[Rfam]
RNA sequence: UUCUUAUCAAGAGAGGUGUAGGGAUUUGGCCCGUCGAUACCUCAGCAGCAGAUUCUUUUAAGAAUACUGUGCUACUUCCAACAAGCAUAGCUUGGUAGAUAAGAG
Numbered sequence: 001u002u003c004u005u006a007u008c009a010a011g012a013g014a015g016g017u018g019u020a021g022g023g024a025u026u027u028g029g030c031c032c033g034u035c036g037a038u039a040c041c042u043c044a045g046c047a048g049c050a051g052a053u054u055c056u057u058u059u060a061a062g063a064a065u066a067c068u069g070u071g072c073u074a075c076u077u078c079c080a081a082c083a084a085g086c087a088u089a090g091c092u093u094g095g096u097a098g099a100u101a102a103g104a105g
Base pairs, nucleotide, nucleotide: 001105002104003103004102005101006100007099008098013043014042015041016040017039021032022031023030026081027080028079029078044073045072046071047070049069050068051065053063054062077097082094083093084092085091086090
Rfam assigns this 105-nucleotide RNA sequence from Peribacillus psychrosaccharolyticus to the family "SAM riboswitch aptamer (S box leader)". The SAM riboswitch is found upstream of a number of genes which code for proteins involved in methionine or cysteine biosynthesis in Gram-positive bacteria. Its family is annotated with regulation of gene expression in the Gene Ontology. A search with the family's covariance model found it, with a score of 82 bits. The family's consensus secondary structure is taken from published work.